Annotation:
Rfam assigns this 135-nucleotide RNA sequence from Clostridium sp. CAG:169 to the family "Glycine riboswitch aptamer". The family has 44 seed sequences and 9,425 matches in Rfam 15.1. From the family's description: This family represents the bacterial glycine riboswitch. Glycine riboswitches usually consist of two metabolite-binding aptamers domains with similar structures in tandem. The match comes from Rfam's covariance-model search (36 bits).

[Rfam]
RNA sequence: UUGAAAGCAUCGGGAGAAUCCCCAAGGGUUGUAAACAAGAGUGCCGCAGCCGAUCGGGGUGCCGUAGGGAAUAAGCAGCAGGGAAUGCCAUCCCUGGUCUGUAAAAAUCUCAGGCCCAAGCACCGAUGCCAGACA
Numbered sequence: 001u002u003g004a005a006a007g008c009a010u011c012g013g014g015a016g017a018a019u020c021c022c023c024a025a026g027g028g029u030u031g032u033a034a035a036c037a038a039g040a041g042u043g044c045c046g047c048a049g050c051c052g053a054u055c056g057g058g059g060u061g062c063c064g065u066a067g068g069g070a071a072u073a074a075g076c077a078g079c080a081g082g083g084a085a086u087g088c089c090a091u092c093c094c095u096g097g098u099c100u101g102u103a104a105a106a107a108u109c110u111c112a113g114g115c116c117c118a119a120g121c122a123c124c125g126a127u128g129c130c131a132g133a134c135a
Stems, first nucleotide, its partner, number of pairs: 007129007020059004061115003064111001068109002075102004